[Rfam]
RNA: Y RNA
RNA sequence: GGCUGGUCCGAGUGCAGUAGUGUUUACAACUAAUUGAUCACAACCAGUUGCAGAUUUCUUUGUUCCUUCUUCACUCACACUGCUUCACUUGGCUAGUGCAA
Numbered sequence: 001g002g003c004u005g006g007u008c009c010g011a012g013u014g015c016a017g018u019a020g021u022g023u024u025u026a027c028a029a030c031u032a033a034u035u036g037a038u039c040a041c042a043a044c045c046a047g048u049u050g051c052a053g054a055u056u057u058c059u060u061u062g063u064u065c066c067u068u069c070u071u072c073a074c075u076c077a078c079a080c081u082g083c084u085u086c087a088c089u090u091g092g093c094u095a096g097u098g099c100a101a
Stems, first nucleotide, its partner, number of pairs: 002097007010090002014086001016081003020078003028064003032060002